Shown here is a 99-nucleotide sequence from Cebus imitator, a member of the family "Y RNA". The base pairs follow the family's consensus structure, which is taken from published work.
RNA sequence: GACUGGUCCAAGAGCAGUGGUGUUUACAACUAACCGAUCACAAGCAGUCAGAUUUCCUGUUCCUUUUCCACUCCCACUCCUCCACUUGACUAGCCUAAA
Numbered sequence: 001g002a003c004u005g006g007u008c009c010a011a012g013a014g015c016a017g018u019g020g021u022g023u024u025u026a027c028a029a030c031u032a033a034c035c036g037a038u039c040a041c042a043a044g045c046a047g048u049c050a051g052a053u054u055u056c057c058u059g060u061u062c063c064u065u066u067u068c069c070a071c072u073c074c075c076a077c078u079c080c081u082c083c084a085c086u087u088g089a090c091u092a093g094c095c096u097a098a099a
Stems, first nucleotide, its partner, number of pairs: 001095001003093006010087002014083001016078005022073001032061003036057001